The family of this 172-nucleotide sequence from Streptomyces longispororuber is "gntR-DTE RNA". The organism belongs to Streptomyces, within Bacteria.
[Rfam]
RNA sequence: CGGGUGCUGGCCGUCGGCGGCCACUUCGUGGGAGGCGAACCGUCCUUCCCCGCGUGCCGGCUCUGGAGAACACCCCGAAGGAUCAUGCCGCCAUCACUGGUGGACAGCCCUUGGGGUGCCACCUGGUGCGCGCCGCCCUGCUGGCGUCAGAGCAGUGACGAUGACGCUCCCG
Numbered sequence: 001c002g003g004g005u006g007c008u009g010g011c012c013g014u015c016g017g018c019g020g021c022c023a024c025u026u027c028g029u030g031g032g033a034g035g036c037g038a039a040c041c042g043u044c045c046u047u048c049c050c051c052g053c054g055u056g057c058c059g060g061c062u063c064u065g066g067a068g069a070a071c072a073c074c075c076c077g078a079a080g081g082a083u084c085a086u087g088c089c090g091c092c093a094u095c096a097c098u099g100g101u102g103g104a105c106a107g108c109c110c111u112u113g114g115g116g117u118g119c120c121a122c123c124u125g126g127u128g129c130g131c132g133c134c135g136c137c138c139u140g141c142u143g144g145c146g147u148c149a150g151a152g153c154a155g156u157g158a159c160g161a162u163g164a165c166g167c168u169c170c171c172g
Stems, first nucleotide, its partner, number of pairs: 016137006052131009064121003071118008